[Rfam]
RNA sequence: CUACUUAUCUGGCAGGCAGGGGAGACCCCAAGAUCACGUAGAUGGUUUUCCCAGGGUGAAGUUUGUCCAUUGCCCUCUGGGUAUGCUGACCCCUGCAAUUUCCCCAAAUAUGGGAAACUUCACCUUGCAAUUUGUGGGUAGUGGGGCAUUGUGUUCACACUCUUCUCUG
Numbered sequence: 001c002u003a004c005u006u007a008u009c010u011g012g013c014a015g016g017c018a019g020g021g022g023a024g025a026c027c028c029c030a031a032g033a034u035c036a037c038g039u040a041g042a043u044g045g046u047u048u049u050c051c052c053a054g055g056g057u058g059a060a061g062u063u064u065g066u067c068c069a070u071u072g073c074c075c076u077c078u079g080g081g082u083a084u085g086c087u088g089a090c091c092c093c094u095g096c097a098a099u100u101u102c103c104c105c106a107a108a109u110a111u112g113g114g115a116a117a118c119u120u121c122a123c124c125u126u127g128c129a130a131u132u133u134g135u136g137g138g139u140a141g142u143g144g145g146g147c148a149u150u151g152u153g154u155u156c157a158c159a160c161u162c163u164u165c166u167c168u169g
Stems, first nucleotide, its partner, number of pairs: 016126001019123001020052006028045003053094004058090001060087003064083005097120002099117003103113002143167004148163001151160003
U1 spliceosomal RNA: a 169-nucleotide RNA sequence from Ornithorhynchus anatinus. Its family is annotated with mRNA 5'-splice site recognition, U1 snRNP and pre-mRNA 5'-splice site binding in the Gene Ontology. It scores 89 bits against the family's covariance model. NCBI's taxonomy places the organism under Eukaryota, Metazoa, Bilateria, Amniota, Ornithorhynchus.